RNA: Bacterial small subunit ribosomal RNA, nucleotides 924 to 1508
Organism: Caldicellulosiruptor saccharolyticus
RNA sequence: UGACGGGGGCCCGCACAAGCGGUGGAGCAUGUGGUUUAAUUCGAAGCAACGCGAAGAACCUUACCAGGGCUUGACAUGCCGGGGACCUGCCCGAAAGGGUGGGGUGCCUGACCGUAAGGUUAGGAGCCCGGACACAGGUGGUGCAUGGUUGUCGUCAGCUCGUGUCGUGAGAUGUUGGGUUAAGUCCCGCAACGAGCGCAACCCCUGCCCUUAGUUGCCAGCGGUUUUAGCCGGGCACUCUAAGGGGACUGCCGUCGAUGAGGCGGAGGAAGGUGGGGAUGACGUCAAAUCAUCAUGCCCCUUAUGCCCUGGGCUACACACGUGCUACAAUGGGUGCUACAGAGGGCGUGCGAAGGCGCGAGCCGGAGCGAAUCCCAAAAAAGCACCCCCAGUUCGGAUUGCAGGCUGCAACUCGCCUGCAUGAAGUCGGAAUCGCUAGUAAUCGCGGAUCAGCAUGCCGCGGUGAAUACGUUCCCGGGCCUUGUACACACCGCCCGUCACACCAUGAGAGUCAGCAACACCUGAAGACACAGGUUAAGCUGUGUUGAAGGUGGGGCUGAUGAUUGGGGUGAAGUCGUAACAAGG
Numbered sequence: 001u002g003a004c005g006g007g008g009g010c011c012c013g014c015a016c017a018a019g020c021g022g023u024g025g026a027g028c029a030u031g032u033g034g035u036u037u038a039a040u041u042c043g044a045a046g047c048a049a050c051g052c053g054a055a056g057a058a059c060c061u062u063a064c065c066a067g068g069g070c071u072u073g074a075c076a077u078g079c080c081g082g083g084g085a086c087c088u089g090c091c092c093g094a095a096a097g098g099g100u101g102g103g104g105u106g107c108c109u110g111a112c113c114g115u116a117a118g119g120u121u122a123g124g125a126g127c128c129c130g131g132a133c134a135c136a137g138g139u140g141g142u143g144c145a146u147g148g149u150u151g152u153c154g155u156c157a158g159c160u161c162g163u164g165u166c167g168u169g170a171g172a173u174g175u176u177g178g179g180u181u182a183a184g185u186c187c188c189g190c191a192a193c194g195a196g197c198g199c200a201a202c203c204c205c206u207g208c209c210c211u212u213a214g215u216u217g218c219c220a221g222c223g224g225u226u227u228u229a230g231c232c233g234g235g236c237a238c239u240c241u242a243a244g245g246g247g248a249c250u251g252c253c254g255u256c257g258a259u260g261a262g263g264c265g266g267a268g269g270a271a272g273g274u275g276g277g278g279a280u281g282a283c284g285u286c287a288a289a290u291c292a293u294c295a296u297g298c299c300c301c302u303u304a305u306g307c308c309c310u311g312g313g314c315u316a317c318a319c320a321c322g323u324g325c326u327a328c329a330a331u332g333g334g335u336g337c338u339a340c341a342g343a344g345g346g347c348g349u350g351c352g353a354a355g356g357c358g359c360g361a362g363c364c365g366g367a368g369c370g371a372a373u374c375c376c377a378a379a380a381a382a383g384c385a386c387c388c389c390c391a392g393u394u395c396g397g398a399u400u401g402c403a404g405g406c407u408g409c410a411a412c413u414c415g416c417c418u419g420c421a422u423g424a425a426g427u428c429g430g431a432a433u434c435g436c437u438a439g440u441a442a443u444c445g446c447g448g449a450u451c452a453g454c455a456u457g458c459c460g461c462g463g464u465g466a467a468u469a470c471g472u473u474c475c476c477g478g479g480c481c482u483u484g485u486a487c488a489c490a491c492c493g494c495c496c497g498u499c500a501c502a503c504c505a506u507g508a509g510a511g512u513c514a515g516c517a518a519c520a521c522c523u524g525a526a527g528a529c530a531c532a533g534g535u536u537a538a539g540c541u542g543u544g545u546u547g548a549a550g551g552u553g554g555g556g557c558u559g560a561u562g563a564u565u566g567g568g569g570u571g572a573a574g575u576c577g578u579a580a581c582a583a584g585g
Stems, first nucleotide, its partner, number of pairs: 001488002003485003007482007015472002019436005024328001026326008034317002040055004064312007077134002079131005086103007105126001107124007137301002140299004146295002148290003151286001153284002158197006164173003176189004203278004208246007218235002222233003249269002252266005332388007344376003350369002355364003395426001400421007442464007491584001493581001496577002501571004506566003511561006519553004527546007